[Rfam]
RNA sequence: AGAACACACAUUAAUUAUCCCUAGGGCCAUGGGAUAAAAAAACGUGCAAAACCAAGUUAGCACACUUUAGAAUGGUUAUAGCACGAUUACUAACCUAUGACUUUGAUACCAGUUGCAGGGAAUGUUAG
Numbered sequence: 001a002g003a004a005c006a007c008a009c010a011u012u013a014a015u016u017a018u019c020c021c022u023a024g025g026g027c028c029a030u031g032g033g034a035u036a037a038a039a040a041a042a043c044g045u046g047c048a049a050a051a052c053c054a055a056g057u058u059a060g061c062a063c064a065c066u067u068u069a070g071a072a073u074g075g076u077u078a079u080a081g082c083a084c085g086a087u088u089a090c091u092a093a094c095c096u097a098u099g100a101c102u103u104u105g106a107u108a109c110c111a112g113u114u115g116c117a118g119g120g121a122a123u124g125u126u127a128g
Base pairs, nucleotide, nucleotide: 009118012115013114014113015112016111022105023104024103025102026101028099029098030097031096032095033094045083046082050077051076053074054073057070058069059068060067
The record is a 128-nucleotide sequence from Vitis vinifera, which matches "MIR845_2 microRNA precursor family" in Rfam. Rfam 15.1 lists 180 matches to the family in 2 species. The family's consensus secondary structure was predicted with WAR. For this family Rfam cites "The grapevine genome sequence suggests ancestral hexaploidization in major angiosperm phyla" (Jaillon et al., Nature, 2007). NCBI's taxonomy places the organism under Eukaryota, Viridiplantae, Magnoliopsida, eudicotyledons, Vitis. Gene Ontology terms of the family: miRNA-mediated post-transcriptional gene silencing and RISC complex.